[Rfam]
RNA: ROOL RNA
Organism: Romboutsia lituseburensis
RNA sequence: AGUUAUAGUUAUGCGUCAUAGAAACUCAGUGAAGAUGGGUGACAACCUGCUGAGAGCUGAUGGUGCCGGGAAGAAUUUAUAAGGAUACUUUGAAAAUUCUAUUCCUUUUAUGAUUUGUGAAAAUCAUAAUGAAUGGUAAAAGCCAAAAGAAUAAGUUGGUUUGCCAAGCUUUAGUGCAUAUAAAGGUAGUAGCCUUGUGGUGGCUGUAAUAGACGCCUCAGUGAGGAAUAAUCCAACGGGGUAUAAGUGUGGUACCUUAUAUGACAUUGGAAAUACCAAACAAAGCCAUUUGUCUUGAAACAGAGAAAUCUGCGUAUAACACAAGAACUAUGUUAAAGUAGCCUUAUGACAAAUAGAGACGAUAUAGACUUCUGAAAGUUAGGUUAAAUUUAUGAGUAAUCAUUCUCAUGUAGGAUAUGGUACUUUGUACUGGGGUAAGAAGCUUAGGGUCGCUCCCAACAGCUCAGACUUAUCUCCCUAGUGACUGAAAUAUAUAUGAAACUAUUGUGAGGUACAGUGAAAACUGUCUAUGGCGUAUAAUUAUA
Number, nucleotide and partner (000 for none) at each position: 001a000002g000003u000004u000005a000006u000007a542008g541009u540010u539011a538012u537013g536014c535015g534016u533017c532018a531019u530020a529021g528022a527023a000024a000025c054026u053027c052028a051029g050030u000031g000032a000033a000034g000035a000036u000037g048038g047039g046040u000041g000042a000043c000044a000045a000046c039047c038048u037049g000050c029051u028052g027053a026054g025055a000056g160057c159058u158059g157060a156061u155062g000063g000064u000065g000066c000067c000068g000069g105070g104071a000072a100073g000074a000075a000076u094077u093078u000079a000080u000081a090082a089083g088084g000085a000086u000087a000088c083089u082090u081091u000092g000093a077094a076095a000096a000097u000098u000099c000100u072101a000102u000103u000104c070105c069106u131107u000108u129109u128110a127111u126112g125113a124114u123115u122116u121117g000118u000119g000120a000121a116122a115123a114124u113125c112126a111127u110128a109129a108130u000131g106132a000133a000134u145135g144136g143137u142138a000139a000140a000141a000142g137143c136144c135145a134146a000147a000148a000149g000150a000151a000152u000153a000154a000155g061156u060157u059158g058159g057160u056161u000162u000163g000164c000165c000166a000167a000168g508169c507170u000171u000172u504173a503174g502175u501176g000177c000178a000179u496180a495181u494182a493183a000184a000185g000186g486187u000188a000189g331190u330191a329192g328193c000194c325195u324196u323197g322198u321199g320200g289201u288202g287203g286204c285205u284206g000207u000208a000209a000210u000211a000212g000213a000214c000215g000216c226217c225218u224219c223220a000221g000222u000223g219224a218225g217226g216227a000228a000229u000230a000231a000232u271233c270234c269235a268236a267237c000238g000239g000240g000241g262242u261243a260244u259245a258246a257247g256248u000249g000250u278251g277252g276253u275254a000255c000256c247257u246258u245259a244260u243261a242262u241263g000264a000265c000266a000267u236268u235269g234270g233271a232272a000273a000274u000275a253276c252277c251278a250279a000280a000281c000282a000283a000284a205285g204286c203287c202288a201289u200290u352291u351292g350293u349294c348295u000296u000297g000298a000299a000300a000301c312302a311303g310304a309305g000306a000307a000308a000309u304310c303311u302312g301313c000314g000315u000316a000317u000318a000319a000320c199321a198322c197323a196324a195325g194326a000327a000328c192329u191330a190331u189332g000333u000334u000335a389336a000337a000338g000339u000340a000341g384342c383343c382344u381345u000346a379347u000348g294349a293350c292351a291352a290353a000354u000355a000356g000357a000358g000359a000360c000361g000362a000363u000364a000365u000366a000367g000368a000369c000370u000371u468372c467373u466374g465375a000376a000377a000378g000379u346380u000381a344382g343383g342384u341385u000386a000387a000388a000389u335390u000391u000392a000393u000394g000395a000396g406397u000398a000399a000400u000401c000402a000403u000404u000405c000406u396407c000408a000409u000410g000411u480412a479413g478414g430415a000416u000417a000418u000419g000420g000421u000422a000423c000424u000425u000426u000427g000428u000429a000430c414431u000432g477433g476434g475435g474436u000437a000438a471439g470440a000441a000442g464443c000444u461445u459446a000447g457448g456449g455450u000451c000452g000453c000454u000455c449456c448457c447458a000459a445460c000461a444462g000463c000464u442465c374466a373467g372468a371469c000470u439471u438472a000473u000474c435475u434476c433477c432478c413479u412480a411481g000482u000483g000484a000485c000486u186487g000488a000489a000490a000491u000492a000493u182494a181495u180496a179497u000498g000499a000500a000501a175502c174503u173504a172505u000506u000507g169508u168509g000510a000511g000512g000513u000514a000515c526516a525517g524518u523519g000520a000521a000522a000523a518524c517525u516526g515527u022528c021529u020530a019531u018532g017533g016534c015535g014536u013537a012538u011539a010540a009541u008542u007543a000544u000545a000